This 141-nucleotide sequence from Sphaerisporangium rubeum belongs to the Rfam family "c-di-AMP riboswitch aptamer (ydaO/yuaA leader)".

[Rfam]
RNA sequence: ACGGCGGUAACGCCAAAUCCCAGGCGCCUCGCCAGGGAACCGGGGACCCGUGCUUCUCUGGGGUGAAUCCACCCAUGUGGUGGUAGGGCGACUCCGGCCCGAACCCGUCAGCUAACCCGGUCGGCGCACGAGAGGAGAAGG
Numbered sequence: 001a002c003g004g005c006g007g008u009a010a011c012g013c014c015a016a017a018u019c020c021c022a023g024g025c026g027c028c029u030c031g032c033c034a035g036g037g038a039a040c041c042g043g044g045g046a047c048c049c050g051u052g053c054u055u056c057u058c059u060g061g062g063g064u065g066a067a068u069c070c071a072c073c074c075a076u077g078u079g080g081u082g083g084u085a086g087g088g089c090g091a092c093u094c095c096g097g098c099c100c101g102a103a104c105c106c107g108u109c110a111g112c113u114a115a116c117c118c119g120g121u122c123g124g125c126g127c128a129c130g131a132g133a134g135g136a137g138a139a140g141g
Base pairs, nucleotide, nucleotide: 011126012125013124014123018038019037020036039121040120041119042118043117044116049060050059061106062105063104069083070082071081072080086100087099088098089097

The base pairs follow the family's consensus structure. This family represents a conserved RNA structure found upstream of the ydaO and yuaA genes in Bacillus subtilis and related genes in other bacteria. The ydaO/yuaA element is thought to act as a genetic 'off' switch for the ydaO and yuaA genes in its native state. It is believed that the element may be triggered during osmotic shock leading to activation of ydaO, a predicted amino acid transporter gene, and members of the yuaA-yubG operon which code for KtrA and KtrB K+ transporters. The organism belongs to Sphaerisporangium, within Bacteria.